[Rfam]
Nucleotides: 114
Stems, first nucleotide, its partner, number of pairs: 013029005075114005086109002089106002092103004
Number, partner (000 for none) and nucleotide at each position: 001000c002000a003000c004000a005000c006000a007000u008000g009000c010000c011000c012000a013029g014028g015027c016026g017025g018000a019000g020000c021000u022000c023000g024000a025017c026016c027015g028014c029013c030000a031000g032000u033000u034000c035000a036000a037000g038000c039000c040000a041000u042000g043000u044000u045000c046000g047000c048000g049000u050000u051000c052000a053000u054000c055000g056000a057000c058000g059000a060000u061000c062000a063000c064000c065000g066000c067000g068000a069000g070000g071000c072000g073000c074000a075114u076113g077112g078111g079110g080000u081000c082000g083000a084000g085000c086109c087108g088000a089106u090105c091000u092103g093102c094101a095100a096000g097000g098000u099000g100095u101094u102093g103092c104000c105090g106089a107000u108087c109086g110079c111078c112077c113076c114075g

Annotation:
Shown here is a 114-nucleotide RNA sequence from Mesorhizobium australicum, a member of the family "ALIL pseudoknot". The source organism's lineage runs through Bacteria, Pseudomonadati, Pseudomonadota, Phyllobacteriaceae and Mesorhizobium.